Rfam assigns this 108-nucleotide sequence from Desulfuromonas sp. DDH964 to the family "TPP riboswitch aptamer (THI element)". The base pairs follow the family's consensus structure, which is taken from published work. A search with the family's covariance model found it, with a score of 70 bits. Vitamin B(1) in its active form thiamin pyrophosphate (TPP) is an essential coenzyme that is synthesised by coupling of pyrimidine and thiazole moieties in bacteria.

[Rfam]
RNA sequence: CAGCAGCCCUAGGGGAGUGAUUUUCUUUCACUGAGAGUCCGCGCGAGCGGACGACCCUUCGAACCUGAUCCGGGUCAUUCCGGCGUAGGAAAGCGGCGCACCAUCCGG
Numbered sequence: 001c002a003g004c005a006g007c008c009c010u011a012g013g014g015g016a017g018u019g020a021u022u023u024u025c026u027u028u029c030a031c032u033g034a035g036a037g038u039c040c041g042c043g044c045g046a047g048c049g050g051a052c053g054a055c056c057c058u059u060c061g062a063a064c065c066u067g068a069u070c071c072g073g074g075u076c077a078u079u080c081c082g083g084c085g086u087a088g089g090a091a092a093g094c095g096g097c098g099c100a101c102c103a104u105c106c107g108g
Base pairs, nucleotide, nucleotide: 007095009093010092011058012057013056014055017031018030019029020028038051039050040049041048042047064089065088066087067086070083071082072081073080